The family of this 169-nucleotide RNA sequence from Desulfonema limicola is "Group II catalytic intron D1-D4-3". The base pairs follow the family's consensus structure. Rfam's curators write: Group II introns are found in rRNA, tRNA and mRNA of organelles in fungi, plants and protists, and also in mRNA in bacteria.
RNA sequence: GCCAAUGAGGAAUCUGAAAGAAGCUGUAUCCAAAAUUGCCGCUCAAACUCGGUGUGAAUCUCUGGCAGGCUGUGUCGGGAGGGCGAGGUAUCCGCAACUGCCAAAGCCCAAUAUCCUUUCCGUAACCCGGCAGAGUAAAGGAGAUGGGCGGGCAGUGAAAGUUAAUGAU
Numbered sequence: 001g002c003c004a005a006u007g008a009g010g011a012a013u014c015u016g017a018a019a020g021a022a023g024c025u026g027u028a029u030c031c032a033a034a035a036u037u038g039c040c041g042c043u044c045a046a047a048c049u050c051g052g053u054g055u056g057a058a059u060c061u062c063u064g065g066c067a068g069g070c071u072g073u074g075u076c077g078g079g080a081g082g083g084c085g086a087g088g089u090a091u092c093c094g095c096a097a098c099u100g101c102c103a104a105a106g107c108c109c110a111a112u113a114u115c116c117u118u119u120c121c122g123u124a125a126c127c128c129g130g131c132a133g134a135g136u137a138a139a140g141g142a143g144a145u146g147g148g149c150g151g152g153c154a155g156u157g158a159a160a161g162u163u164a165a166u167g168a169u
Stems, first nucleotide, its partner, number of pairs: 001006001023169001025167003031161001035156006041149005059144005069136003073132007081109004087102004